[Rfam]
RNA: RAGATH-18 RNA
Nucleotides: 066
Base pairs, nucleotide, nucleotide: 001064002063003062004061005060009053010052011051012050013049022048023047024046030041031040032039
Number, partner (000 for none) and nucleotide at each position: 001064c002063c003062u004061u005060u006000g007000g008000a009053g010052u011051a012050u013049u014000a015000u016000a017000u018000c019000a020000a021000a022048u023047g024046u025000u026000a027000g028000u029000a030041g031040u032039u033000c034000u035000a036000c037000g038000g039032a040031a041030c042000a043000a044000g045000g046024a047023c048022a049013g050012a051011u052010a053009c054000a055000a056000u057000g058000a059000a060005a061004a062003a063002g064001g065000a066000a